[Rfam]
Glycine riboswitch aptamer: a 95-nucleotide RNA from Paenibacillus xerothermodurans.
Rfam describes the family as follows. This family represents the bacterial glycine riboswitch. Glycine riboswitches usually consist of two metabolite-binding aptamers domains with similar structures in tandem.
Taxonomically the source falls in Paenibacillus (Bacteria, Bacillota, Bacilli, Paenibacillaceae).
On this family, see Mandal et al., Science 2004: "A glycine-dependent riboswitch that uses cooperative binding to control gene expression".
RNA sequence: AUGAUGGCGAUGAGAGAGAUUACUUGACAUUAAAGUAACGCCGAAGGGGUAAGCCGCCAGGUGAAACUCUCAGGCAAAAGGACCGUCGCCGGACA
Numbered sequence: 001a002u003g004a005u006g007g008c009g010a011u012g013a014g015a016g017a018g019a020u021u022a023c024u025u026g027a028c029a030u031u032a033a034a035g036u037a038a039c040g041c042c043g044a045a046g047g048g049g050u051a052a053g054c055c056g057c058c059a060g061g062u063g064a065a066a067c068u069c070u071c072a073g074g075c076a077a078a079a080g081g082a083c084c085g086u087c088g089c090c091g092g093a094c095a
Base pairs, nucleotide, nucleotide: 006090007089008088009087010086011085012084020038021037022036023035024034025033040075041074042073043071044070047069048068049067053062054061